RNA sequence: GCGGCAGGCGGUACCGGACUGACCGGAGCGCAGCGGAGGGAGGGAGGAUAAGGAGCCUGCCGCGUGCCUGGA
Numbered sequence: 001g002c003g004g005c006a007g008g009c010g011g012u013a014c015c016g017g018a019c020u021g022a023c024c025g026g027a028g029c030g031c032a033g034c035g036g037a038g039g040g041a042g043g044g045a046g047g048a049u050a051a052g053g054a055g056c057c058u059g060c061c062g063c064g065u066g067c068c069u070g071g072a
Stems, first nucleotide, its partner, number of pairs: 001063009
RNA: Bacillus-plasmid RNA
Organism: Microbacterium aurantiacum